Rfam assigns this 389-nucleotide sequence from Salipaludibacillus agaradhaerens to the family "Bacterial RNase P class B". The match comes from Rfam's covariance-model search (299 bits).

RNA sequence: UGUCUAGGUAAUCGCUGCACUGGUAACAGUGUAGAGGAAAGUCCAUGCUCACACAAUCUGAGAGUGAUUGUAGUGUUCGUGCCUGACGAAUUCAUAAGUCAGGGUAGUCUGGGAAUCAGGCUAACGGCAGGAGGCUUGCCUAAGUUAGUGUUUACUAAUAAGGUAAGUGCACCUUGAAAGUGCCACAGUGACGUAGUCUGUCUGGAAACGGACAGAGUGGAACGCGGUAAACCCCACGAGUGAGAAACCCAAAAACAUGGUAGGGGCAUCUUUGCGAAGGAAAUGAACGGAGCAAAGGACAGAUAUCGUUCUGUAGACAGAUGAUUACCACCUUAGUACGAGGGUGACUCCCGUUUGUAGUGCAAAGGUACAGAACAUGGCUUACGAAG
Numbered sequence: 001u002g003u004c005u006a007g008g009u010a011a012u013c014g015c016u017g018c019a020c021u022g023g024u025a026a027c028a029g030u031g032u033a034g035a036g037g038a039a040a041g042u043c044c045a046u047g048c049u050c051a052c053a054c055a056a057u058c059u060g061a062g063a064g065u066g067a068u069u070g071u072a073g074u075g076u077u078c079g080u081g082c083c084u085g086a087c088g089a090a091u092u093c094a095u096a097a098g099u100c101a102g103g104g105u106a107g108u109c110u111g112g113g114a115a116u117c118a119g120g121c122u123a124a125c126g127g128c129a130g131g132a133g134g135c136u137u138g139c140c141u142a143a144g145u146u147a148g149u150g151u152u153u154a155c156u157a158a159u160a161a162g163g164u165a166a167g168u169g170c171a172c173c174u175u176g177a178a179a180g181u182g183c184c185a186c187a188g189u190g191a192c193g194u195a196g197u198c199u200g201u202c203u204g205g206a207a208a209c210g211g212a213c214a215g216a217g218u219g220g221a222a223c224g225c226g227g228u229a230a231a232c233c234c235c236a237c238g239a240g241u242g243a244g245a246a247a248c249c250c251a252a253a254a255a256c257a258u259g260g261u262a263g264g265g266g267c268a269u270c271u272u273u274g275c276g277a278a279g280g281a282a283a284u285g286a287a288c289g290g291a292g293c294a295a296a297g298g299a300c301a302g303a304u305a306u307c308g309u310u311c312u313g314u315a316g317a318c319a320g321a322u323g324a325u326u327a328c329c330a331c332c333u334u335a336g337u338a339c340g341a342g343g344g345u346g347a348c349u350c351c352c353g354u355u356u357g358u359a360g361u362g363c364a365a366a367g368g369u370a371c372a373g374a375a376c377a378u379g380g381c382u383u384a385c386g387a388a389g
Stems, first nucleotide, its partner, number of pairs: 003389001005387001007329007015034006039383003043380005048244005053071006077239005082103006104125001105123008126234002129174003137165004144159006180232002182228003197216008248265003269298007299314005331368004336363004

From the family's description: Ribonuclease P (RNase P) is a ubiquitous endoribonuclease, found in archaea, bacteria and eukarya as well as chloroplasts and mitochondria. Its best characterised activity is the generation of mature 5'-ends of tRNAs by cleaving the 5'-leader elements of precursor-tRNAs. Cellular RNase Ps are ribonucleoproteins.
It is annotated as a ribozyme.
Its family is annotated with tRNA processing, dimeric ribonuclease P complex and ribonuclease P activity in the Gene Ontology.